Rfam assigns this 132-nucleotide sequence from Isobaculum melis to the family "FMN riboswitch aptamer (RFN element)". Gene Ontology term of the family: FMN binding.
[Rfam]
RNA sequence: AUUCGUCUUCAGGGCAGGGUGUAAUUCCCGACCGGUGGUAUAGUCCACGACCUCGUCUAUUUCUUGAAAUAAACGGGCUGAACUGGUUAAAUUCCAGUACCGACAGUAUAGUCUGGAUAAGAGAAGAUGGUG
Numbered sequence: 001a002u003u004c005g006u007c008u009u010c011a012g013g014g015c016a017g018g019g020u021g022u023a024a025u026u027c028c029c030g031a032c033c034g035g036u037g038g039u040a041u042a043g044u045c046c047a048c049g050a051c052c053u054c055g056u057c058u059a060u061u062u063c064u065u066g067a068a069a070u071a072a073a074c075g076g077g078c079u080g081a082a083c084u085g086g087u088u089a090a091a092u093u094c095c096a097g098u099a100c101c102g103a104c105a106g107u108a109u110a111g112u113c114u115g116g117a118u119a120a121g122a123g124a125a126g127a128u129g130g131u132g
Stems, first nucleotide, its partner, number of pairs: 003130008017029003031112002033102002035048004043100002052077005082098005104115003